Small nucleolar RNA ACA64: a 114-nucleotide sequence from Bucco capensis.
On this family, see Schattner et al., RNA 2006: "A computational screen for mammalian pseudouridylation guide H/ACA RNAs".
NCBI's taxonomy places the organism under Eukaryota, Chordata, Craniata, Teleostomi, Bucco.

RNA sequence: ACAGUCUGAAAAUCACUUGGGGUCUCCUGUGGCCCCUGGUGCGAUAACUGUGCCAACAGCAGAGGGAGGAUUACACGGUAAAAUGUGGGGAGUGAUACCCAUGUUCCUAUAAUC
Numbered sequence: 001a002c003a004g005u006c007u008g009a010a011a012a013u014c015a016c017u018u019g020g021g022g023u024c025u026c027c028u029g030u031g032g033c034c035c036c037u038g039g040u041g042c043g044a045u046a047a048c049u050g051u052g053c054c055a056a057c058a059g060c061a062g063a064g065g066g067a068g069g070a071u072u073a074c075a076c077g078g079u080a081a082a083a084u085g086u087g088g089g090g091a092g093u094g095a096u097a098c099c100c101a102u103g104u105u106c107c108u109a110u111a112a113u114c
Stems, first nucleotide, its partner, number of pairs: 006050001008048001010045001014041003021034004065107001067105002070102001071095003074087003